The record is a 139-nucleotide sequence from Tupaia belangeri, which matches "Small nucleolar RNA SNORA15" in Rfam.
Rfam links the family to the GO terms RNA processing and nucleolus.
The base pairs follow the family's consensus structure, which was predicted with RNAfold.
The family has 22 seed sequences and 974 matches in Rfam 15.1.
NCBI's taxonomy places the organism under Eukaryota, Eumetazoa, Dipnotetrapodomorpha, Theria, Tupaia belangeri.
Rfam describes the family as follows. ACA15 is a member of the H/ACA class of snoRNA that guide the sites of modification of uridines to pseudouridines.
RNA sequence: GCAUGGCUGAAUGCUGUCUUCUUUUAUCAGUAGUUUACAGAGUCAGAUAGCAUGUAAAAGUAACAUCUUCCCUCUGAAGUGAUCAUGAUACUGUGCAUUGUUUUUUCAUAGCAUAUCUUUAUUAGAAGUGAAUACAAAU
Numbered sequence: 001g002c003a004u005g006g007c008u009g010a011a012u013g014c015u016g017u018c019u020u021c022u023u024u025u026a027u028c029a030g031u032a033g034u035u036u037a038c039a040g041a042g043u044c045a046g047a048u049a050g051c052a053u054g055u056a057a058a059a060g061u062a063a064c065a066u067c068u069u070c071c072c073u074c075u076g077a078a079g080u081g082a083u084c085a086u087g088a089u090a091c092u093g094u095g096c097a098u099u100g101u102u103u104u105u106u107c108a109u110a111g112c113a114u115a116u117c118u119u120u121a122u123u124a125g126a127a128g129u130g131a132a133u134a135c136a137a138a139u
Stems, first nucleotide, its partner, number of pairs: 001055005014042002017039001019037001068132003071128001073126005086121003092115005